[Rfam]
Nucleotides: 068
Base pairs, nucleotide, nucleotide: 025063026062027061028060029059030058031057032056033055034054035052036051037050
Number, partner (000 for none) and nucleotide at each position: 001000u002000g003000g004000u005000g006000u007000g008000u009000g010000a011000g012000g013000a014000g015000c016000g017000a018000a019000c020000c021000a022000g023000u024000a025063a026062g027061a028060g029059u030058g031057c032056c033055g034054a035052g036051a037050c038000g039000a040000a041000a042000c043000a044000c045000g046000g047000a048000c049000a050037g051036u052035c053000g054034u055033c056032g057031g058030c059029a060028c061027u062026c063025u064000u065000u066000c067000u068000g
Shown here is a 68-nucleotide RNA sequence from Limnothrix sp. P13C2, a member of the family "Cyano-1 RNA".
Taxonomically the source falls in Limnothrix (Bacteria, Bacillati, Cyanophyceae, Pseudanabaenales).
The family's consensus secondary structure is taken from published work.
It scores 41 bits against the family's covariance model.